[Rfam]
Overview:
The family of this 110-nucleotide RNA from Roseicyclus mahoneyensis is "TPP riboswitch aptamer (THI element)". For this family Rfam cites "Comparative genomics of thiamin biosynthesis in procaryotes. New genes and regulatory mechanisms" (Rodionov et al., J Biol Chem, 2002). Vitamin B(1) in its active form thiamin pyrophosphate (TPP) is an essential coenzyme that is synthesised by coupling of pyrimidine and thiazole moieties in bacteria. The family's consensus secondary structure is taken from published work. Its family is annotated with thiamine pyrophosphate binding in the Gene Ontology.

RNA sequence: UGGAACACCUCGGGGUGGCCUGUCUUUGGCCUGAGAUGCGCAAACUGAUGCGCGAACCCGUUGAACCUGAACCGGUUAGGACCGGCGGAGGGAAGGUUUGCGGGCCAGUU
Numbered sequence: 001u002g003g004a005a006c007a008c009c010u011c012g013g014g015g016u017g018g019c020c021u022g023u024c025u026u027u028g029g030c031c032u033g034a035g036a037u038g039c040g041c042a043a044a045c046u047g048a049u050g051c052g053c054g055a056a057c058c059c060g061u062u063g064a065a066c067c068u069g070a071a072c073c074g075g076u077u078a079g080g081a082c083c084g085g086c087g088g089a090g091g092g093a094a095g096g097u098u099u100g101c102g103g104g105c106c107a108g109u110u
Base pairs, nucleotide, nucleotide: 007097008096009095010094011060012059013058014057016054017031018030019029020028038053039052040051041050042049066091067090068089072085073084074083075082
Dot-bracket structure: ......((((((((.(((((.......))))......(((((......))))))..)))).....(((...((((......))))...)))..)))).............